Bacterial RNase P class A: a 402-nucleotide RNA sequence from Agrobacterium tumefaciens. Taxonomically the source falls in Agrobacterium tumefaciens complex (Bacteria, Pseudomonadati, Hyphomicrobiales, Agrobacterium).
[Rfam]
RNA sequence: CCAGUUGGCCGGGCAGCCGCGCCUUACCAAUGUCGAAAGACGGUAAGGUGAGGAAAGUCCGGGCUCCACGGAAAUACGGUGCCGGAUAACGUCCGGCGGGGGCGACCCCAGGGAAAGUGCCACAGAGAGCAAACCGCCAUGCCUUGCAUGGUAAGGGUGAAAGGGUGGGGUAAGAGCCCACCGCGCCGCUGGUGACAGUGGUGGCAAGGUAAACCCCACCGGGAGCAAGACCGAAUAGGGAUGACACGGGGCGGGCGAAAGCCUGUUCACAGCCGGUUUCCGGGCCCGUCAUCCGGGUGGGUUGCGAGAGGCGGCAUGCAAAUGCCGUCCCAGAUGAAUGGCUGCCACGUUCCGGGUCAAACCGGGGCCAUACAGAACCCGGCUUACAGGCCAACUGGCGAA
Numbered sequence: 001c002c003a004g005u006u007g008g009c010c011g012g013g014c015a016g017c018c019g020c021g022c023c024u025u026a027c028c029a030a031u032g033u034c035g036a037a038a039g040a041c042g043g044u045a046a047g048g049u050g051a052g053g054a055a056a057g058u059c060c061g062g063g064c065u066c067c068a069c070g071g072a073a074a075u076a077c078g079g080u081g082c083c084g085g086a087u088a089a090c091g092u093c094c095g096g097c098g099g100g101g102g103c104g105a106c107c108c109c110a111g112g113g114a115a116a117g118u119g120c121c122a123c124a125g126a127g128a129g130c131a132a133a134c135c136g137c138c139a140u141g142c143c144u145u146g147c148a149u150g151g152u153a154a155g156g157g158u159g160a161a162a163g164g165g166u167g168g169g170g171u172a173a174g175a176g177c178c179c180a181c182c183g184c185g186c187c188g189c190u191g192g193u194g195a196c197a198g199u200g201g202u203g204g205c206a207a208g209g210u211a212a213a214c215c216c217c218a219c220c221g222g223g224a225g226c227a228a229g230a231c232c233g234a235a236u237a238g239g240g241a242u243g244a245c246a247c248g249g250g251g252c253g254g255g256c257g258a259a260a261g262c263c264u265g266u267u268c269a270c271a272g273c274c275g276g277u278u279u280c281c282g283g284g285c286c287c288g289u290c291a292u293c294c295g296g297g298u299g300g301g302u303u304g305c306g307a308g309a310g311g312c313g314g315c316a317u318g319c320a321a322a323u324g325c326c327g328u329c330c331c332a333g334a335u336g337a338a339u340g341g342c343u344g345c346c347a348c349g350u351u352c353c354g355g356g357u358c359a360a361a362c363c364g365g366g367g368c369c370a371u372a373c374a375g376a377a378c379c380c381g382g383c384u385u386a387c388a389g390g391c392c393a394a395c396u397g398g399c400g401a402a
Stems, first nucleotide, its partner, number of pairs: 001398010011387001012346007020050009055385003059382005064225004077221005082096005097111001098109004112216002117214002119210003134156002136152007164182006183205001184203008229303004239294006274288003278284001310329008